[Rfam]
RNA: Small nucleolar RNA ncR1
RNA sequence: GACAUGGACGAUCUGAAUCUCUCAGAUUGUAAAUGUCGUUGUAUGGAAAUCUAGAUUUGAGAUGUUAGUAGUUAGGAGGUCUCAUCUUUGCGUUAGAAAGAGAGAAGCA
Numbered sequence: 001g002a003c004a005u006g007g008a009c010g011a012u013c014u015g016a017a018u019c020u021c022u023c024a025g026a027u028u029g030u031a032a033a034u035g036u037c038g039u040u041g042u043a044u045g046g047a048a049a050u051c052u053a054g055a056u057u058u059g060a061g062a063u064g065u066u067a068g069u070a071g072u073u074a075g076g077a078g079g080u081c082u083c084a085u086c087u088u089u090g091c092g093u094u095a096g097a098a099a100g101a102g103a104g105a106a107g108c109a
Stems, first nucleotide, its partner, number of pairs: 001037005008030007050105003056099003061094005070087002074082003